Annotation: This 66-nucleotide RNA sequence from Salmo salar belongs to the Rfam family "mir-190 microRNA precursor family". The source organism's lineage runs through Eukaryota, Opisthokonta, Actinopteri, Euteleosteomorpha and Salmo. Rfam 15.1 lists 1,667 matches to the family in 854 species. Rfam's curators put it in the seed alignment. Rfam links the family to the GO terms miRNA-mediated post-transcriptional gene silencing and RISC complex.
RNA sequence: UGAUAUGUUUGAUAUUCGGUUGUUCUCCUGCGUAAUCAAGUCAACUAAAUAUCAGACAUAUUCCUA
Numbered sequence: 001u002g003a004u005a006u007g008u009u010u011g012a013u014a015u016u017c018g019g020u021u022g023u024u025c026u027c028c029u030g031c032g033u034a035a036u037c038a039a040g041u042c043a044a045c046u047a048a049a050u051a052u053c054a055g056a057c058a059u060a061u062u063c064c065u066a
Stems, first nucleotide, its partner, number of pairs: 002062015018046005